[Rfam]
RNA sequence: AUACAGGAAACGAUGAUGUUUAAAUUCACCCACAUAUCUGAACACCUUUGUGUGGACAGUCCAUUUUCUGAGUUUCUUGAU
Numbered sequence: 001a002u003a004c005a006g007g008a009a010a011c012g013a014u015g016a017u018g019u020u021u022a023a024a025u026u027c028a029c030c031c032a033c034a035u036a037u038c039u040g041a042a043c044a045c046c047u048u049u050g051u052g053u054g055g056a057c058a059g060u061c062c063a064u065u066u067u068c069u070g071a072g073u074u075u076c077u078u079g080a081u
Stems, first nucleotide, its partner, number of pairs: 001081002004079003008075004
A member of the RNA family "Small nucleolar RNA SNORD121A" from Callorhinchus milii, 81 nucleotides long. Taxonomically the source falls in Callorhinchus (Eukaryota, Opisthokonta, Deuterostomia, Chondrichthyes). The match comes from Rfam's covariance-model search (44 bits). A reference for the family is Yang et al. (2006), "snoSeeker: an advanced computational package for screening of guide and orphan snoRNA genes in the human genome", Nucleic Acids Res.